[Rfam]
RNA sequence: AGGAUGUGAUGAAGAAAAGAUUGGUCCGUGUUUCUGAUAACCAGUGACUGAUAGCCAUCUGUUUUUACUUCUGAUCCU
Dot-bracket structure: ((((......................................................................))))

The family of this 78-nucleotide RNA from Zizania palustris is "Small nucleolar RNA SNORD18". Its family is annotated with RNA processing and nucleolus in the Gene Ontology. Clan: SNORD18 clan. The family's consensus secondary structure was predicted with PFOLD. Rfam 15.1 lists 2,622 matches to the family in 960 species. It scores 42 bits against the family's covariance model.